[Rfam]
RNA sequence: UCACGUGAACCCGUAGAUCCGAACUUGUGGGAAUUUUCUCCACAGGUUCGACUCUAUGGUCCACGUGUG
Numbered sequence: 001u002c003a004c005g006u007g008a009a010c011c012c013g014u015a016g017a018u019c020c021g022a023a024c025u026u027g028u029g030g031g032a033a034u035u036u037u038c039u040c041c042a043c044a045g046g047u048u049c050g051a052c053u054c055u056a057u058g059g060u061c062c063a064c065g066u067g068u069g
Stems, first nucleotide, its partner, number of pairs: 002067006011059002015055003020050010
A member of the RNA family "mir-10 microRNA precursor family" from Desmophyllum pertusum, 69 nucleotides long. The match comes from Rfam's covariance-model search (57 bits). The family has 36 seed sequences and 3,853 matches in Rfam 15.1. Pairs were carried over by alignment from the consensus structure, which was predicted with PFOLD. The literature on the family includes a 2001 paper in Science by Lee and Ambros, "An extensive class of small RNAs in Caenorhabditis elegans". The source organism's lineage runs through Eukaryota, Opisthokonta, Cnidaria, Hexacorallia and Desmophyllum.